[Rfam]
RNA sequence: ACGAUGUUCCGCUGUAAAGGAAAUAGAGGACAAGAGCAUCUG
Numbered sequence: 001a002c003g004a005u006g007u008u009c010c011g012c013u014g015u016a017a018a019g020g021a022a023a024u025a026g027a028g029g030a031c032a033a034g035a036g037c038a039u040c041u042g
Stems, first nucleotide, its partner, number of pairs: 003040007013032003
Rfam assigns this 42-nucleotide RNA from Jeotgalibacillus soli to the family "Ribosomal protein L19 leader".
Rfam's curators write: This family is a putative r-protein leader autoregulatory structure found in B. subtilis and other low-GC Gram-positive bacteria. It is located in the 5' untranslated regions of mRNAs encoding ribosomal protein L19 (rplS).
Pairs were carried over by alignment from the consensus structure, which was predicted with CMfinder.
The match comes from Rfam's covariance-model search (41 bits).
NCBI's taxonomy places the organism under Bacteria, Bacillati, Bacilli, Caryophanaceae, Jeotgalibacillus.